A member of the RNA family "speF leader" from Fulvimarina endophytica, 155 nucleotides long. The match comes from Rfam's covariance-model search (69 bits). The base pairs follow the family's consensus structure, which was predicted with RNAalifold. The family's RNA type in Rfam is cis-regulatory leader. The organism belongs to Fulvimarina, within Bacteria.
[Rfam]
RNA sequence: UCCCGGUGUCCAAACCCGGGAAUACUGAAGAGGCACACCUUCCUUGCCUGAAGUGCGGCGGGUCCAAGCCCUCCAAUCCAUGGCAGACCGAUACCCGAAACCGGCGCAUGACGUGCCGUCUUCGGACCCAUCGCGUCGCGCGAUCUCACCCAUCC
Numbered sequence: 001u002c003c004c005g006g007u008g009u010c011c012a013a014a015c016c017c018g019g020g021a022a023u024a025c026u027g028a029a030g031a032g033g034c035a036c037a038c039c040u041u042c043c044u045u046g047c048c049u050g051a052a053g054u055g056c057g058g059c060g061g062g063u064c065c066a067a068g069c070c071c072u073c074c075a076a077u078c079c080a081u082g083g084c085a086g087a088c089c090g091a092u093a094c095c096c097g098a099a100a101c102c103g104g105c106g107c108a109u110g111a112c113g114u115g116c117c118g119u120c121u122u123c124g125g126a127c128c129c130a131u132c133g134c135g136u137c138g139c140g141c142g143a144u145c146u147c148a149c150c151c152a153u154c155c
Stems, first nucleotide, its partner, number of pairs: 001021006032048004055134003082095002103117005